The family of this 193-nucleotide RNA sequence from Rhizobium etli is "Group I catalytic intron".
It scores 61 bits against the family's covariance model.
Taxonomically the source falls in Rhizobium etli (Bacteria, Pseudomonadati, Pseudomonadota, Hyphomicrobiales).
About the family: Group I catalytic introns are large self-splicing ribozymes. They catalyse their own excision from mRNA, tRNA and rRNA precursors in a wide range of organisms. The core secondary structure consists of 9 paired regions (P1-P9). These fold to essentially two domains - the P4-P6 domain (formed from the stacking of P5, P4, P6 and P6a helices) and the P3-P9 domain (formed from the P8, P3, P7 and P9 helices). The secondary structure mark-up for this family represents only this conserved core. Group I catalytic introns often have long ORFs inserted in loop regions. The window size for this search is chosen to minimise search time and catch the small examples. A larger window size will find more matches.

RNA sequence: CAAGGGACUUAAAGAAAAAUUGAGUGCACGGGCGGAAACGCCUGAUGUAGAACUGCUCAAAGUCGGGGAAACCUGUCAGAUGGCAAUCCCGAGCCAAGCCCCUCAGGGGAAGGUGUAGAGACUAGACGGGCAGCACCUAAGGCGGAAGCUAGGGUGAAGGUAUAGUCCAGACCACAAACGCCGGAAGGCGGCG
Numbered sequence: 001c002a003a004g005g006g007a008c009u010u011a012a013a014g015a016a017a018a019a020u021u022g023a024g025u026g027c028a029c030g031g032g033c034g035g036a037a038a039c040g041c042c043u044g045a046u047g048u049a050g051a052a053c054u055g056c057u058c059a060a061a062g063u064c065g066g067g068g069a070a071a072c073c074u075g076u077c078a079g080a081u082g083g084c085a086a087u088c089c090c091g092a093g094c095c096a097a098g099c100c101c102c103u104c105a106g107g108g109g110a111a112g113g114u115g116u117a118g119a120g121a122c123u124a125g126a127c128g129g130g131c132a133g134c135a136c137c138u139a140a141g142g143c144g145g146a147a148g149c150u151a152g153g154g155u156g157a158a159g160g161u162a163u164a165g166u167c168c169a170g171a172c173c174a175c176a177a178a179c180g181c182c183g184g185a186a187g188g189c190g191g192c193g
Base pairs, nucleotide, nucleotide: 005027007025008024009023010022011021012020031042032041033040053133054132055131056130058128063092064091065090066089067088068087072083073082093114094113099108100107101106118168120167121166122165123164124163136154137153138152140150141149175191179190180189181188182187